[Rfam]
RNA sequence: GCAGACUCACUCUGUGCUGAACUGCAGCCUCCAGUUCAGGUGCUUUUGUGUCUGCAAGAGUAAGAGCUCACAGGAGUGACGAUGGCCUUCUUCCCUGUAGAAGGCUGUUACAGUUGCUGUUGAGACAUUGCU
Numbered sequence: 001g002c003a004g005a006c007u008c009a010c011u012c013u014g015u016g017c018u019g020a021a022c023u024g025c026a027g028c029c030u031c032c033a034g035u036u037c038a039g040g041u042g043c044u045u046u047u048g049u050g051u052c053u054g055c056a057a058g059a060g061u062a063a064g065a066g067c068u069c070a071c072a073g074g075a076g077u078g079a080c081g082a083u084g085g086c087c088u089u090c091u092u093c094c095c096u097g098u099a100g101a102a103g104g105c106u107g108u109u110a111c112a113g114u115u116g117c118u119g120u121u122g123a124g125a126c127a128u129u130g131c132u
Stems, first nucleotide, its partner, number of pairs: 001055006014043004018038003022034003068123003071119003075114001077112002081108001084106005

The record is a 132-nucleotide RNA from Climacteris rufus, which matches "Small nucleolar RNA SNORA77" in Rfam. The source organism's lineage runs through Eukaryota, Metazoa, Deuterostomia, Sarcopterygii and Climacteris. From the family's description: ACA63 (SNORA77) is a member of the H/ACA class of snoRNAs that guide the sites of modification of uridines to pseudouridines. The match comes from Rfam's covariance-model search (44 bits).